[Rfam]
RNA: Ribosomal S15 leader
Organism: Psittacicella hinzii
RNA sequence: CGCCUAUACUGAGUUAGAGAUCGGUAUCAGGUGAGUUUAAAUUUUUUAAUUUUUAUAGGAAAUUUUAAUAUGUCUCUAAGUUCAGAACAAAAAGCUGAAAUUUUAGCUAAAUUUGGUCGUACAGAA
Number, nucleotide and partner (000 for none) at each position: 001c000002g000003c000004c000005u000006a000007u026008a025009c024010u023011g022012a021013g000014u000015u000016a000017g000018a000019g000020a000021u012022c011023g010024g009025u008026a007027u000028c000029a000030g000031g000032u000033g000034a000035g000036u000037u000038u000039a000040a000041a000042u000043u000044u000045u000046u000047u000048a000049a000050u080051u079052u078053u000054u000055a000056u000057a000058g077059g076060a075061a000062a000063u000064u000065u000066u000067a000068a000069u000070a000071u000072g000073u000074c000075u060076c059077u058078a052079a051080g050081u000082u000083c000084a000085g000086a000087a000088c000089a000090a000091a000092a000093a000094g000095c000096u000097g000098a000099a000100a000101u000102u000103u000104u000105a000106g000107c000108u000109a000110a000111a000112u000113u000114u000115g000116g000117u000118c000119g000120u000121a000122c000123a000124g000125a000126a000